[Rfam]
RNA: MIR8565 microRNA precursor family
Organism: Amborella trichopoda
RNA sequence: CCCACACCCAUGUGUAUAGGAAUCCAAAGGAUCACCAUUAAAUUUGGCAUAGAUCUCUAAAAACGUUAUCACAUGAGUGUGGGACUUGACUUUUCUAGAGAUCUAUCCCUAAUUUAAUGGUGAUCCUUUGGAGUCCUACACACAUGGGUGUGGG
Numbered sequence: 001c002c003c004a005c006a007c008c009c010a011u012g013u014g015u016a017u018a019g020g021a022a023u024c025c026a027a028a029g030g031a032u033c034a035c036c037a038u039u040a041a042a043u044u045u046g047g048c049a050u051a052g053a054u055c056u057c058u059a060a061a062a063a064c065g066u067u068a069u070c071a072c073a074u075g076a077g078u079g080u081g082g083g084a085c086u087u088g089a090c091u092u093u094u095c096u097a098g099a100g101a102u103c104u105a106u107c108c109c110u111a112a113u114u115u116a117a118u119g120g121u122g123a124u125c126c127u128u129u130g131g132a133g134u135c136c137u138a139c140a141c142a143c144a145u146g147g148g149u150g151u152g153g154g
Base pairs, nucleotide, nucleotide: 002153003152004151005150006149007148008147009146010145011144012143013142015140017138018137019136020135021134023132024131025130026129027128028127030125031124032123034121035120036119037118038117039116040115041114042113043112044111046109047108049106050105051104052103053102054101055100056099057098058097059096061094062093063092065090066089067088068087069082070081071080072079073078